Rfam assigns this 75-nucleotide RNA sequence from Alligator sinensis to the family "Mammalian CPEB3 ribozyme".
The family's consensus secondary structure is taken from published work.
RNA sequence: GCUGAAAUUCCAGGCCAUAGCAGAAGUGCUCAUAGCACGGCCCGGUCAGAUUCCAGUGAAUCUGCAAAUUCUGUU
Numbered sequence: 001g002c003u004g005a006a007a008u009u010c011c012a013g014g015c016c017a018u019a020g021c022a023g024a025a026g027u028g029c030u031c032a033u034a035g036c037a038c039g040g041c042c043c044g045g046u047c048a049g050a051u052u053c054c055a056g057u058g059a060a061u062c063u064g065c066a067a068a069u070u071c072u073g074u075u
Base pairs, nucleotide, nucleotide: 013042014041015040016039019075020074021073022072023071024070025069026038027037028036047064048063049062050061051060052059053058